[Rfam]
RNA sequence: CUUGGGAAGUGAUGAACAAUUCAUCUCAGAUAUCCUUUAUGGAUAUAUAUAAAUGAUGAAAAAUUGCACGUCAGUCUGAUCCCAUA
Numbered sequence: 001c002u003u004g005g006g007a008a009g010u011g012a013u014g015a016a017c018a019a020u021u022c023a024u025c026u027c028a029g030a031u032a033u034c035c036u037u038u039a040u041g042g043a044u045a046u047a048u049a050u051a052a053a054u055g056a057u058g059a060a061a062a063a064u065u066g067c068a069c070g071u072c073a074g075u076c077u078g079a080u081c082c083c084a085u086a
Stems, first nucleotide, its partner, number of pairs: 003084005